[Rfam]
RNA sequence: UUCUUAUCAAGAGUGGUGGAGGGACUGGCCCUUUGAUGCCCGGCAACCGGUGUAAAACAUGGUGCUAAAUCCAGCAGAGGAAACUCUGGAAGAUAAGGA
Numbered sequence: 001u002u003c004u005u006a007u008c009a010a011g012a013g014u015g016g017u018g019g020a021g022g023g024a025c026u027g028g029c030c031c032u033u034u035g036a037u038g039c040c041c042g043g044c045a046a047c048c049g050g051u052g053u054a055a056a057a058c059a060u061g062g063u064g065c066u067a068a069a070u071c072c073a074g075c076a077g078a079g080g081a082a083a084c085u086c087u088g089g090a091a092g093a094u095a096a097g098g099a
Stems, first nucleotide, its partner, number of pairs: 001099008013041001015040003021031003025074004042066004047062002049058001051056001070091001075088005
Dot-bracket structure: ((((((((....(.(((...(((.[[[[)))......))))((((.(((.(....).)..))))))...(]]]](((((....)))))..)))))))))
RNA: SAM riboswitch aptamer (S box leader)
Organism: Bacillus sp. Y1